This 79-nucleotide sequence from Xenopus laevis belongs to the Rfam family "mir-92 microRNA precursor family". Rfam describes the family as follows. This family represents the microRNA precursor mir-92. Human miR-92 has two predicted hairpin precursor sequences: mir-92-1 on chromosome 13 and mir-92-2 on chromosome X. miR-92 has also been cloned from mouse embryonic stem cells. The mature sequence is excised from the 3' arm of the hairpin.
RNA sequence: CUUUCUGUAUAGGUUGGGAUUGGUUGCAAUGCUGUACUAUUUAUGUAGUAUUGCACUUGUCCCGGCCUGUUUAGGAUGG
Number, nucleotide and partner (000 for none) at each position: 001c000002u000003u000004u075005c074006u073007g000008u000009a070010u069011a068012g067013g066014u065015u000016g063017g062018g061019a060020u059021u000022g057023g056024u055025u000026g054027c053028a052029a051030u050031g049032c048033u047034g046035u000036a000037c000038u000039a000040u000041u000042u000043a000044u000045g000046u034047a033048g032049u031050a030051u029052u028053g027054c026055a024056c023057u022058u000059g020060u019061c018062c017063c016064g000065g014066c013067c012068u011069g010070u009071u000072u000073a006074g005075g004076a000077u000078g000079g000
On this family, see Houbaviy et al., Dev Cell 2003: "Embryonic stem cell-specific MicroRNAs".